Record summary:
A member of the RNA family "epsC RNA" from Paenibacillus sp. IHBB 10380, 112 nucleotides long. The match comes from Rfam's covariance-model search (95 bits). The source organism's lineage runs through Bacteria, Bacillati, Bacillota, Paenibacillaceae and Paenibacillus.

[Rfam]
RNA sequence: AGGUAAUGCCUACUAUAUCUAUAUCAUUGUAGGCACUCGGUCAUACUGUGGGUCCCUUGGACCUUAGACGUGAAUCGUCAAUGGUGUGAAGUGAGGAUGGGUUUAAUGCCCU
Dot-bracket structure: [[[[..(((((((...]]]]........)))))))((((.(((((((..((((((...))))))..((((.....))))...)))))))..))))...((((.....)))).
Numbered sequence: 001a002g003g004u005a006a007u008g009c010c011u012a013c014u015a016u017a018u019c020u021a022u023a024u025c026a027u028u029g030u031a032g033g034c035a036c037u038c039g040g041u042c043a044u045a046c047u048g049u050g051g052g053u054c055c056c057u058u059g060g061a062c063c064u065u066a067g068a069c070g071u072g073a074a075u076c077g078u079c080a081a082u083g084g085u086g087u088g089a090a091g092u093g094a095g096g097a098u099g100g101g102u103u104u105a106a107u108g109c110c111c112u
Stems, first nucleotide, its partner, number of pairs: 001020004007035007036095004041089007050064006067079004099111004